[Rfam]
RNA sequence: AUUUGGGUGAUGAAGAAAGUUGUUCGGAUUCCCACUGAUUUUCAUGAUUAUUACAACCAGAUACUUCUGACGGAU
Numbered sequence: 001a002u003u004u005g006g007g008u009g010a011u012g013a014a015g016a017a018a019g020u021u022g023u024u025c026g027g028a029u030u031c032c033c034a035c036u037g038a039u040u041u042u043c044a045u046g047a048u049u050a051u052u053a054c055a056a057c058c059a060g061a062u063a064c065u066u067c068u069g070a071c072g073g074a075u
Stems, first nucleotide, its partner, number of pairs: 001075005
RNA: Small nucleolar RNA R12
Organism: Triticum turgidum